[Rfam]
Source information:
This 93-nucleotide sequence from Eurystomus gularis belongs to the Rfam family "Small nucleolar RNA SNORD70". snoRNA HBII-234 belongs to the C/D family of snoRNAs. It is the human orthologue of the mouse MBII-234 and is predicted to guide 2'O-ribose methylation of the small 18S rRNA on position A512. Taxonomically the source falls in Eurystomus (Eukaryota, Metazoa, Dipnotetrapodomorpha, Saurischia). A search with the family's covariance model found it, with a score of 62 bits. Rfam links the family to the GO terms nucleolus and RNA processing.
RNA sequence: UUGCUUGUUGUCAAUGAUGGAUGGAUUCUUGUUGAAGCUGAAUGUAACUGAUUUGAGUCAACAUUUCCUCACUACCGCUGAAACAACAGACAU
Numbered sequence: 001u002u003g004c005u006u007g008u009u010g011u012c013a014a015u016g017a018u019g020g021a022u023g024g025a026u027u028c029u030u031g032u033u034g035a036a037g038c039u040g041a042a043u044g045u046a047a048c049u050g051a052u053u054u055g056a057g058u059c060a061a062c063a064u065u066u067c068c069u070c071a072c073u074a075c076c077g078c079u080g081a082a083a084c085a086a087c088a089g090a091c092a093u
Stems, first nucleotide, its partner, number of pairs: 002092002005089007